[Rfam]
RNA sequence: GGGGCCUGUGAUGAUCUUUCAUAUUAUGCCUACAUUGUUUGACUUGACAAUGAUAAGAUAUAUAUUUUGUGUCUGAGGCCUCC
Numbered sequence: 001g002g003g004g005c006c007u008g009u010g011a012u013g014a015u016c017u018u019u020c021a022u023a024u025u026a027u028g029c030c031u032a033c034a035u036u037g038u039u040u041g042a043c044u045u046g047a048c049a050a051u052g053a054u055a056a057g058a059u060a061u062a063u064a065u066u067u068u069g070u071g072u073c074u075g076a077g078g079c080c081u082c083c
Stems, first nucleotide, its partner, number of pairs: 001082001003080004

The record is an 83-nucleotide RNA from Beta vulgaris, which matches "Small nucleolar RNA SNORD34" in Rfam. Rfam 15.1 lists 1,319 matches to the family in 583 species. For this family Rfam cites "The high diversity of snoRNAs in plants: identification and comparative study of 120 snoRNA genes from Oryza sativa" (Chen et al., Nucleic Acids Res, 2003). snoRNA U34 is found in intron 5 of the ribosomal protein L13a gene in humans. The match comes from Rfam's covariance-model search (46 bits). Pairs were carried over by alignment from the consensus structure, which was predicted with PFOLD.